[Rfam]
RNA sequence: GCCGAGUUCUGUAGCUGGAGCUUGUAACCCGAGCGGGGGCAUUAAGGUGGCGCGGAUGCUUUGCGAUGGUUUCUGGGCCUGGGCUCGUUGUGACUCUAGCCGGCUUGCCCAUCCCAAGUUGGUAGUGUCUGACGGGGCUCUAGCGAAAGCUUUGGGUCUCUGCAGACCUACAGCGGCAGGAAUGGCGUAAGGCUGGCUUCACAGAGCAGCGAUCACUGCCCACUUCCAACGGUGGGAGGAUAACAAGCCGCUGCACUUUGAGCCCAACACAGACCCAGAUCCUCUCUUAGCAAACCACCAUCUUU
Dot-bracket structure: (((((((((((....))))))))....(((....))))))...(((((((.(.(..((..(.(.((.((..((((((.(((((((((..(((.(......(((((((.((.(((((.(((((.((((((((..(((((((.(((....)))..)))))))..)))))(....).(((((....(.(((....(((......)))....))).)..))))).))).)))))..)))))))....)))))))..))))..))))))).....)).)))))).))))..).).))..)).))))))).

Rfam assigns this 305-nucleotide RNA sequence from Zea mays to the family "Plant signal recognition particle RNA". It scores 233 bits against the family's covariance model. Lineage of the source: Eukaryota > Streptophyta > Euphyllophyta > Tripsacinae > Zea.